The family of this 89-nucleotide RNA sequence from Scyliorhinus torazame is "Vault RNA". The family's RNA type in Rfam is non-coding RNA gene. A search with the family's covariance model found it, with a score of 46 bits.
[Rfam]
RNA sequence: GCGUCAGCUUUAGCUCACUGGUUACUUCACAGCAUCAAUUUAAUUGUAAGUUCGGUCCUGGCUCACCAUAGGCGCUGCCUGGCGUUUUU
Number, nucleotide and partner (000 for none) at each position: 001g000002c084003g083004u082005c081006a080007g079008c000009u000010u000011u000012a000013g073014c072015u071016c000017a000018c000019u068020g067021g066022u000023u000024a000025c000026u000027u055028c054029a000030c000031a000032g000033c000034a000035u000036c000037a000038a000039u000040u000041u000042a000043a000044u000045u000046g000047u000048a000049a000050g000051u000052u000053c000054g028055g027056u000057c000058c000059u000060g000061g000062c000063u000064c000065a000066c021067c020068a019069u000070a000071g015072g014073c013074g000075c000076u000077g000078c000079c007080u006081g005082g004083c003084g002085u000086u000087u000088u000089u000